[Rfam]
RNA sequence: AUGGAUGUGAUGAUUAUUUCCCCAGAUGACCGAAACUGAAAUUACCGAGCGCUUUUUAAUGUAUUUUCUUCCUUCGGGGGGAAAAUCCAAGCCAGAUAUUCUGAUCCAU
Numbered sequence: 001a002u003g004g005a006u007g008u009g010a011u012g013a014u015u016a017u018u019u020c021c022c023c024a025g026a027u028g029a030c031c032g033a034a035a036c037u038g039a040a041a042u043u044a045c046c047g048a049g050c051g052c053u054u055u056u057u058a059a060u061g062u063a064u065u066u067u068c069u070u071c072c073u074u075c076g077g078g079g080g081g082a083a084a085a086u087c088c089a090a091g092c093c094a095g096a097u098a099u100u101c102u103g104a105u106c107c108a109u
Base pairs, nucleotide, nucleotide: 001109002108003107004106005105